[Rfam]
A member of the RNA family "Group II catalytic intron D1-D4-7" from Rickettsiales endosymbiont of Peranema trichophorum, 152 nucleotides long.
RNA sequence: CCUGAUGUUCUGCCAUCAGUACGCUACCUGAACAUGCAUUGUUGGUAACGACUUUGUGCGAAGCUUCAGGAAGAAUGUAACCUGAGAUCUUAGGAUCUGCAGUAUUAUCCGUGAGGAUGAAACUGCGCUGCAAGCAUUAUGCGGCAGGGUCC
Numbered sequence: 001c002c003u004g005a006u007g008u009u010c011u012g013c014c015a016u017c018a019g020u021a022c023g024c025u026a027c028c029u030g031a032a033c034a035u036g037c038a039u040u041g042u043u044g045g046u047a048a049c050g051a052c053u054u055u056g057u058g059c060g061a062a063g064c065u066u067c068a069g070g071a072a073g074a075a076u077g078u079a080a081c082c083u084g085a086g087a088u089c090u091u092a093g094g095a096u097c098u099g100c101a102g103u104a105u106u107a108u109c110c111g112u113g114a115g116g117a118u119g120a121a122a123c124u125g126c127g128c129u130g131c132a133a134g135c136a137u138u139a140u141g142c143g144g145c146a147g148g149g150u151c152c
Stems, first nucleotide, its partner, number of pairs: 002019006028069005033060001035058004041052004085098005100125004109116002127145006
Rfam describes the family as follows. Group II introns are found in rRNA, tRNA and mRNA of organelles in fungi, plants and protists, and also in mRNA in bacteria. A reference for the family is Bonen and Vogel (2001), "The ins and outs of group II introns", Trends Genet. A search with the family's covariance model found it, with a score of 104 bits. NCBI's taxonomy places the organism under Bacteria, Pseudomonadati, Pseudomonadota, Alphaproteobacteria, Rickettsiales. Pairs were carried over by alignment from the consensus structure. Rfam 15.1 lists 1,296 matches to the family in 705 species.